[Rfam]
RNA sequence: GGCCGGGUAGCUCAGUUGGUAGAGCAGGGGACUGAAAAUCCCCGUGUCGGGGGUUCGAUUCCCUCCCCGGCCA
Numbered sequence: 001g002g003c004c005g006g007g008u009a010g011c012u013c014a015g016u017u018g019g020u021a022g023a024g025c026a027g028g029g030g031a032c033u034g035a036a037a038a039u040c041c042c043c044g045u046g047u048c049g050g051g052g053g054u055u056c057g058a059u060u061c062c063c064u065c066c067c068c069g070g071c072c073a
Base pairs, nucleotide, nucleotide: 001072002071003070004069005068006067007066010025011024012023013022027043028042029041030040031039049065050064051063052062053061
Annotation:
Shown here is a 73-nucleotide RNA from Pseudoxanthomonas taiwanensis, a member of the family "tRNA".